Description:
A member of the RNA family "SAM (S-adenosyl methionine) riboswitch aptamer" from Actinorugispora endophytica, 126 nucleotides long. The match comes from Rfam's covariance-model search (101 bits).

RNA sequence: GGUCAUGAGCGCCAGCGCCAAGCCCCGGCUCGCUGGCCGGCAACCCUCCUUUCGCGGUGGGGUGCCCCGGGUGAGGACCAGGUCGAGACACCGCCGAGAACGCGGCGUGUCAGACAAGCGCGGACC
Numbered sequence: 001g002g003u004c005a006u007g008a009g010c011g012c013c014a015g016c017g018c019c020a021a022g023c024c025c026c027g028g029c030u031c032g033c034u035g036g037c038c039g040g041c042a043a044c045c046c047u048c049c050u051u052u053c054g055c056g057g058u059g060g061g062g063u064g065c066c067c068c069g070g071g072u073g074a075g076g077a078c079c080a081g082g083u084c085g086a087g088a089c090a091c092c093g094c095c096g097a098g099a100a101c102g103c104g105g106c107g108u109g110u111c112a113g114a115c116a117a118g119c120g121c122g123g124a125c126c
Stems, first nucleotide, its partner, number of pairs: 001079004009038001011037006021030002039066003044062003048057002082115003087111005